Rfam assigns this 87-nucleotide RNA sequence from Apostasia shenzhenica to the family "mir-160 microRNA precursor family". NCBI's taxonomy places the organism under Eukaryota, Streptophytina, Magnoliopsida, Orchidaceae, Apostasia. A search with the family's covariance model found it, with a score of 59 bits. The literature on the family includes a 2002 paper in Cell by Rhoades et al., "Prediction of plant microRNA targets". Gene Ontology terms of the family: miRNA-mediated post-transcriptional gene silencing and RISC complex.

Nucleotides: 087
Base pairs, nucleotide, nucleotide: 001087002086004085005084006083007082009080010079011078012077013076014075015074017072018071020069021068022067023066024065025064028061029060
Number, partner (000 for none) and nucleotide at each position: 001087g002086u003000a004085g005084u006083g007082c008000c009080u010079g011078g012077c013076u014075c015074c016000c017072u018071g019000u020069g021068u022067g023066c024065c025064a026000c027000a028061c029060g030000u031000g032000a033000c034000u035000a036000g037000u038000u039000a040000a041000u042000u043000a044000u045000a046000c047000a048000a049000a050000u051000u052000g053000g054000c055000u056000a057000g058000u059000u060029c061028g062000g063000g064025u065024g066023g067022c068021a069020u070000u071018c072017a073000a074015g075014g076013a077012g078011c079010c080009a081000a082007g083006c084005a085004c086002a087001c